[Rfam]
RNA sequence: UCCGGUGGAACGUGCCUACUCCACUUUAUAGUCCCGUUCCGCUGCAAUAAAGGAGAAUACGCCCGCGUGACUCGCGGUGCGGCAGUGUGGAGACCUGCCGCAAUGGGCACGGGAUACCGCUUCCCGCGUCCGAGCCGGCCGGUUGGAGGAUUCCGCGGCCGGCAGAGUCGGAACAAGCAUGGCA
Numbered sequence: 001u002c003c004g005g006u007g008g009a010a011c012g013u014g015c016c017u018a019c020u021c022c023a024c025u026u027u028a029u030a031g032u033c034c035c036g037u038u039c040c041g042c043u044g045c046a047a048u049a050a051a052g053g054a055g056a057a058u059a060c061g062c063c064c065g066c067g068u069g070a071c072u073c074g075c076g077g078u079g080c081g082g083c084a085g086u087g088u089g090g091a092g093a094c095c096u097g098c099c100g101c102a103a104u105g106g107g108c109a110c111g112g113g114a115u116a117c118c119g120c121u122u123c124c125c126g127c128g129u130c131c132g133a134g135c136c137g138g139c140c141g142g143u144u145g146g147a148g149g150a151u152u153c154c155g156c157g158g159c160c161g162g163c164a165g166a167g168u169c170g171g172a173a174c175a176a177g178c179a180u181g182g183c184a
Stems, first nucleotide, its partner, number of pairs: 006041007014033001016031003063077004068170006078102008087094002105131004110126004134163008145154003